[Rfam]
RNA sequence: ACCAGACGUGUACUGGUCUUGUGGACAAAGUCCUGGCGAGCGUGGCGCAUCUCGCGGUGCGCGCGGGCGACCUUGUUCUUGGCUUUGCGGCGGUUGUUCGAGUCCUUCUGCUUCCGUGUCAUCUGCCGCUGGUAGCGGGCAAGGUUACGGGCCUUGCGGUCCGGAUGCUUCGGGUUCGCGAUCUUCUCGCCGGAGGACAGGGCCGCGAAGUCCUUCACACCCAGGUCCACCCCGACCGCACGGCCAGUCUCGGUCUGCGGUUCGGGGCCGUCGGUGUCCACGGCGAACGUGACAUACCAGCGGCCGUCGGGCUCGCGGGACACGAUCACCAUCGUCGGGUUCAACGACGCCAGGGUUUCGGCGCCCCAGGACCACACGAACGCAAGCGGCGCGGUGUGCUUCGCGAGAGUCAGUUUGCCGCCGCGCAGGCGGAACGCGCUGCGCGUGUAGUGCGCGGACUGGCGGCCGUUGCGGGACUUGAAACGCGGGUAGCGCGCGCGCCCGAGGAAGAAGUUCUGAUAGGCGGUGUGCUGGUGCCGCAACGUUUGCUGCAACGGCACCGACGAGACCUCGGACAGGAACGCCGGCUCGGCGG
Numbered sequence: 001a002c003c004a005g006a007c008g009u010g011u012a013c014u015g016g017u018c019u020u021g022u023g024g025a026c027a028a029a030g031u032c033c034u035g036g037c038g039a040g041c042g043u044g045g046c047g048c049a050u051c052u053c054g055c056g057g058u059g060c061g062c063g064c065g066g067g068c069g070a071c072c073u074u075g076u077u078c079u080u081g082g083c084u085u086u087g088c089g090g091c092g093g094u095u096g097u098u099c100g101a102g103u104c105c106u107u108c109u110g111c112u113u114c115c116g117u118g119u120c121a122u123c124u125g126c127c128g129c130u131g132g133u134a135g136c137g138g139g140c141a142a143g144g145u146u147a148c149g150g151g152c153c154u155u156g157c158g159g160u161c162c163g164g165a166u167g168c169u170u171c172g173g174g175u176u177c178g179c180g181a182u183c184u185u186c187u188c189g190c191c192g193g194a195g196g197a198c199a200g201g202g203c204c205g206c207g208a209a210g211u212c213c214u215u216c217a218c219a220c221c222c223a224g225g226u227c228c229a230c231c232c233c234g235a236c237c238g239c240a241c242g243g244c245c246a247g248u249c250u251c252g253g254u255c256u257g258c259g260g261u262u263c264g265g266g267g268c269c270g271u272c273g274g275u276g277u278c279c280a281c282g283g284c285g286a287a288c289g290u291g292a293c294a295u296a297c298c299a300g301c302g303g304c305c306g307u308c309g310g311g312c313u314c315g316c317g318g319g320a321c322a323c324g325a326u327c328a329c330c331a332u333c334g335u336c337g338g339g340u341u342c343a344a345c346g347a348c349g350c351c352a353g354g355g356u357u358u359c360g361g362c363g364c365c366c367c368a369g370g371a372c373c374a375c376a377c378g379a380a381c382g383c384a385a386g387c388g389g390c391g392c393g394g395u396g397u398g399c400u401u402c403g404c405g406a407g408a409g410u411c412a413g414u415u416u417g418c419c420g421c422c423g424c425g426c427a428g429g430c431g432g433a434a435c436g437c438g439c440u441g442c443g444c445g446u447g448u449a450g451u452g453c454g455c456g457g458a459c460u461g462g463c464g465g466c467c468g469u470u471g472c473g474g475g476a477c478u479u480g481a482a483a484c485g486c487g488g489g490u491a492g493c494g495c496g497c498g499c500g501c502c503c504g505a506g507g508a509a510g511a512a513g514u515u516c517u518g519a520u521a522g523g524c525g526g527u528g529u530g531c532u533g534g535u536g537c538c539g540c541a542a543c544g545u546u547u548g549c550u551g552c553a554a555c556g557g558c559a560c561c562g563a564c565g566a567g568a569c570c571u572c573g574g575a576c577a578g579g580a581a582c583g584c585c586g587g588c589u590c591g592g593c594g595g
Stems, first nucleotide, its partner, number of pairs: 002016004017580006023033004040068002043065002045062007069146010082133003087129007095121002097118001099116002101112003149213004154208009164198001166197001168195006177189002180186002220574002223571005230267006236260005242255004269565010281551010295536008303527006310351003313347003318342004323337004359471005364465002366462004372456001373454001375452003380446004386442008395433001397431005402425004407419001409418002472518008484506001486504005492499002582594005
Rfam assigns this 595-nucleotide RNA sequence from Saccharopolyspora erythraea to the family "Saccharopolyspora sRNA 389". NCBI's taxonomy places the organism under Bacteria, Bacillati, Pseudonocardiales, Pseudonocardiaceae, Saccharopolyspora erythraea. Rfam links the family to the GO term regulation of secondary metabolite biosynthetic process. The base pairs follow the family's consensus structure, which was predicted with RNAfold.